[Rfam]
RNA sequence: AGUCCGGCCCUGCCCCACCAGGCACCCGGAGCCGGGGACCCACACGCAGGACCGGGGUGAAUCAGACCGUAUCGGACCACCGGCCAUCGGUGCUCUCGCUCGAUGCCGGCCCGUACGGACCGUAGGGCAGCCUUCCGACGCCCGAACCCGACAGCUAACCCGGUAGGCGGUCCACGGAAGGAGG
Numbered sequence: 001a002g003u004c005c006g007g008c009c010c011u012g013c014c015c016c017a018c019c020a021g022g023c024a025c026c027c028g029g030a031g032c033c034g035g036g037g038a039c040c041c042a043c044a045c046g047c048a049g050g051a052c053c054g055g056g057g058u059g060a061a062u063c064a065g066a067c068c069g070u071a072u073c074g075g076a077c078c079a080c081c082g083g084c085c086a087u088c089g090g091u092g093c094u095c096u097c098g099c100u101c102g103a104u105g106c107c108g109g110c111c112c113g114u115a116c117g118g119a120c121c122g123u124a125g126g127g128c129a130g131c132c133u134u135c136c137g138a139c140g141c142c143c144g145a146a147c148c149c150g151a152c153a154g155c156u157a158a159c160c161c162g163g164u165a166g167g168c169g170g171u172c173c174a175c176g177g178a179a180g181g182a183g184g
Stems, first nucleotide, its partner, number of pairs: 003030005031164006041054001055149003063122001065120001125143004
Shown here is a 184-nucleotide RNA sequence from Streptomyces sp. SAJ15, a member of the family "c-di-AMP riboswitch aptamer (ydaO/yuaA leader)". The match comes from Rfam's covariance-model search (46 bits). From the family's description: This family represents a conserved RNA structure found upstream of the ydaO and yuaA genes in Bacillus subtilis and related genes in other bacteria. Taxonomically the source falls in Streptomyces (Bacteria, Bacillati, Actinomycetota, Kitasatosporales). Rfam links the family to the GO terms regulation of gene expression and cyclic-di-AMP binding.